[Rfam]
RNA sequence: UCUGGCAAUGAUGACACACUUGCCCUCACUGAGCAGCCUUCACUGAUGAGAGCUUUUGGAUACACUCAGUUGGAGCUGAGCCAGA
Dot-bracket structure: ((((((.........................................................................))))))
Description
The family of this 85-nucleotide RNA sequence from Turnix velox is "Small nucleolar RNA SNORD103/SNORD85". Rfam links the family to the GO terms nucleolus and RNA processing. The pairing is the family consensus, mapped onto this sequence. A search with the family's covariance model found it, with a score of 66 bits. It is annotated as a C/D-box small nucleolar RNA.